[Rfam]
Overview
Rfam assigns this 65-nucleotide RNA from Rhynochetos jubatus to the family "Small nucleolar RNA SNORD98".
RNA sequence: GAGUGAUGAUGUUCUAAACCUAUUCCAUUUCUUAAACGCUCUGUGGAAAAAAAAUGACUGAACUC
Numbered sequence: 001g002a003g004u005g006a007u008g009a010u011g012u013u014c015u016a017a018a019c020c021u022a023u024u025c026c027a028u029u030u031c032u033u034a035a036a037c038g039c040u041c042u043g044u045g046g047a048a049a050a051a052a053a054a055u056g057a058c059u060g061a062a063c064u065c
Base pairs, nucleotide, nucleotide: 001065002064003063004062
On this family, see Huttenhofer et al., EMBO J 2001: "RNomics: an experimental approach that identifies 201 candidates for novel, small, non-messenger RNAs in mouse".